[Rfam]
Bacterial small signal recognition particle RNA: a 98-nucleotide RNA from Maioricimonas rarisocia. A search with the family's covariance model found it, with a score of 54 bits. On this family, see Rosenblad et al., Nucleic Acids Res 2003: "SRPDB: Signal Recognition Particle Database". Gene Ontology terms of the family: signal recognition particle, plasma membrane targeting and SRP-dependent cotranslational protein targeting to membrane, signal sequence recognition.
RNA sequence: GGCUAUCUCCCACACGGUGGGGCCUCACGAACCGGGUCAGGCGGGAAACCGAGCAGCCCUAAGUGCAGCGUUCUCAGGUGUGUGUGGAGAUAGCCUUC
Numbered sequence: 001g002g003c004u005a006u007c008u009c010c011c012a013c014a015c016g017g018u019g020g021g022g023c024c025u026c027a028c029g030a031a032c033c034g035g036g037u038c039a040g041g042c043g044g045g046a047a048a049c050c051g052a053g054c055a056g057c058c059c060u061a062a063g064u065g066c067a068g069c070g071u072u073c074u075c076a077g078g079u080g081u082g083u084g085u086g087g088a089g090a091u092a093g094c095c096u097u098c
Base pairs, nucleotide, nucleotide: 003093004092005091006090007089009086011084012083013082014081015078018076019075020074021073022072023068026065027064028063034059035058036057037056042051043050044049